This 85-nucleotide sequence from Nordella sp. HKS 07 belongs to the Rfam family "chrB-a RNA". NCBI's taxonomy places the organism under Bacteria, Pseudomonadati, Alphaproteobacteria, Hyphomicrobiales, Nordella.

RNA sequence: CCCAUGGGGCGAAGCGAUCACCCCACAAGGCGACAGCCGAAGCAUCGCGUCCUGGCACAUUUCAUCAGUCCGGAGGACGCCCAUG
Numbered sequence: 001c002c003c004a005u006g007g008g009g010c011g012a013a014g015c016g017a018u019c020a021c022c023c024c025a026c027a028a029g030g031c032g033a034c035a036g037c038c039g040a041a042g043c044a045u046c047g048c049g050u051c052c053u054g055g056c057a058c059a060u061u062u063c064a065u066c067a068g069u070c071c072g073g074a075g076g077a078c079g080c081c082c083a084u085g
Stems, first nucleotide, its partner, number of pairs: 005025005047080006